RNA: U8 small nucleolar RNA
Organism: Nannospalax galili
Nucleotides: 129
Stems, first nucleotide, its partner, number of pairs: 023044002027041005068086002071083001073081001074079001091117008
Number, partner (000 for none) and nucleotide at each position: 001000c002000u003000g004000u005000c006000a007000g008000g009000u010000g011000g012000g013000a014000u015000a016000a017000c018000c019000u020000u021000a022000c023044c024043u025000a026000u027041u028040c029039u030038u031037c032000c033000u034000u035000u036000u037031g038030a039029g040028g041027g042000c043024a044023g045000a046000u047000a048000g049000a050000a051000a052000a053000c054000g055000a056000u057000g058000g059000a060000g061000u062000u063000c064000g065000c066000a067000u068086g069085a070000u071083g072000c073081g074079u075000g076000a077000u078000u079074a080000g081073c082000a083071u084000c085069u086068c087000u088000g089000c090000a091117u092116a093115a094114u095113c096112a097111g098110g099000a100000c101000u102000u103000g104000c105000a106000a107000c108000a109000c110098c111097c112096u113095g114094a115093u116092u117091g118000c119000u120000c121000c122000u123000a124000a125000c126000u127000g128000a129000u